[Rfam]
RNA sequence: GAAUUUGAGCAAUAAAUCCGCACAUAUACCGUCACAUUGUUCUGGGUGCUCUGUAGGCUCUACCUAUCUAAUAAGUAGAACUGAAGGGGUUGAAUAAUGGGGUAUAUGGAGGCCUAAC
Numbered sequence: 001g002a003a004u005u006u007g008a009g010c011a012a013u014a015a016a017u018c019c020g021c022a023c024a025u026a027u028a029c030c031g032u033c034a035c036a037u038u039g040u041u042c043u044g045g046g047u048g049c050u051c052u053g054u055a056g057g058c059u060c061u062a063c064c065u066a067u068c069u070a071a072u073a074a075g076u077a078g079a080a081c082u083g084a085a086g087g088g089g090u091u092g093a094a095u096a097a098u099g100g101g102g103u104a105u106a107u108g109g110a111g112g113c114c115u116a117a118c
Stems, first nucleotide, its partner, number of pairs: 023108008035099008048090005

The family of this 118-nucleotide RNA sequence from Dasania phycosphaerae is "t44 RNA". The organism belongs to Dasania, within Bacteria. It scores 71 bits against the family's covariance model. Rfam describes the family as follows. This family consists of a number of bacterial RNA genes of between 135 and 170 bases in length. Rfam classes the family as a small RNA.